A member of the RNA family "SAM-I/IV (S-adenosyl methionine) riboswitch aptamer" from Vicingus serpentipes, 95 nucleotides long.
Its Rfam clan is "SAM clan".
Rfam links the family to the GO terms S-adenosylmethionine metabolic process and regulation of gene expression.
The organism belongs to Vicingus, within Bacteria.
The family has 417 seed sequences and 567 matches in Rfam 15.1.
It scores 51 bits against the family's covariance model.
[Rfam]
Nucleotides: 095
Base pairs, nucleotide, nucleotide: 006068007067008066009065015031016030017029018028019027020026032059033058034057037055038054039053041050042049044091070079071078072077
Number, partner (000 for none) and nucleotide at each position: 001000a002000u003000c004000a005000u006068g007067u008066a009065u010000c011000u012000u013000g014000a015031a016030u017029c018028u019027c020026u021000u022000u023000u024000u025000a026020a027019g028018a029017g030016a031015u032059a033058c034057c035000a036000a037055c038054c039053g040000a041050g042049c043000a044091g045000a046000a047000a048000a049042g050041c051000a052000a053039c054038g055037g056000u057034g058033g059032u060000u061000c062000a063000g064000a065009a066008u067007a068006c069000g070079g071078a072077c073000a074000a075000c076000a077072g078071u079070c080000a081000a082000a083000a084000a085000a086000a087000c088000a089000g090000a091044c092000u093000u094000c095000a